[Rfam]
RNA sequence: CCGUGCAGCUGGGGAGAUAGCGGUGCCCUGUACCUGCAAUCCGCUACAGCAGGGGUGAUGCCGAACUGAGGACUUUUUCAUUGCAUAGCUGCCUUUUAUAAGUGGCGUUGACGUUUGGGUCUUACGCAACGGAAAUCCAUGAACCGUGUCAGGACAGGAAUGUAGCAGCACUAAGUGGAACCUUUCGUGUGCCGUGAGGGCGCCUGGGCCGAGUUAACUGUAGAAGUAACGUUUGCGGUGUCGGUUCGAAGGGAGGUGCACGG
Numbered sequence: 001c002c003g004u005g006c007a008g009c010u011g012g013g014g015a016g017a018u019a020g021c022g023g024u025g026c027c028c029u030g031u032a033c034c035u036g037c038a039a040u041c042c043g044c045u046a047c048a049g050c051a052g053g054g055g056u057g058a059u060g061c062c063g064a065a066c067u068g069a070g071g072a073c074u075u076u077u078u079c080a081u082u083g084c085a086u087a088g089c090u091g092c093c094u095u096u097u098a099u100a101a102g103u104g105g106c107g108u109u110g111a112c113g114u115u116u117g118g119g120u121c122u123u124a125c126g127c128a129a130c131g132g133a134a135a136u137c138c139a140u141g142a143a144c145c146g147u148g149u150c151a152g153g154a155c156a157g158g159a160a161u162g163u164a165g166c167a168g169c170a171c172u173a174a175g176u177g178g179a180a181c182c183u184u185u186c187g188u189g190u191g192c193c194g195u196g197a198g199g200g201c202g203c204c205u206g207g208g209c210c211g212a213g214u215u216a217a218c219u220g221u222a223g224a225a226g227u228a229a230c231g232u233u234u235g236c237g238g239u240g241u242c243g244g245u246u247c248g249a250a251g252g253g254a255g256g257u258g259c260a261c262g263g
Base pairs, nucleotide, nucleotide: 001263002262003261004260005259006258007257008056009055010054011029012028013027014026016024018022033053034052035051036050037049061256062255066251067250070247071246072245073244074243079240080239081238082237083236084235085234090228091227094225095224096223097222098221099220102218103217104215105214106213113209114208115207116206117205118204119203120202121198122197123196124195125194126193127189128188130187131186132185133184134183136179137178138177139176140175146171147170148169149168154163155162156161
The record is a 263-nucleotide sequence from Lachnospiraceae bacterium OF09-33XD, which matches "Bacterial large signal recognition particle RNA" in Rfam. The signal recognition particle (SRP) is a universally conserved ribonucleoprotein involved in the co-translational targeting of proteins to membranes. The source organism's lineage runs through Bacteria, Bacillati, Clostridia, Lachnospirales and Lachnospiraceae. Pairs were carried over by alignment from the consensus structure, which is taken from published work. A search with the family's covariance model found it, with a score of 183 bits.